[Rfam]
RNA sequence: GAGACACCCUUAUGGGGCAGGACUUGCUUUAAUGGGGUUUUGGCACUCACUGAGUUUUCCCCCUGAGUGUGCCUCU
Numbered sequence: 001g002a003g004a005c006a007c008c009c010u011u012a013u014g015g016g017g018c019a020g021g022a023c024u025u026g027c028u029u030u031a032a033u034g035g036g037g038u039u040u041u042g043g044c045a046c047u048c049a050c051u052g053a054g055u056u057u058u059c060c061c062c063c064u065g066a067g068u069g070u071g072c073c074u075c076u
Stems, first nucleotide, its partner, number of pairs: 001075003005071003009067004014062004019057001021056003029053003033049004037044002
The record is a 76-nucleotide sequence from Myotis myotis, which matches "mir-9229 microRNA precursor family" in Rfam. Rfam 15.1 lists 27,225 matches to the family in 9 species. Lineage of the source: Eukaryota > Mammalia > Chiroptera > Yangochiroptera > Myotis.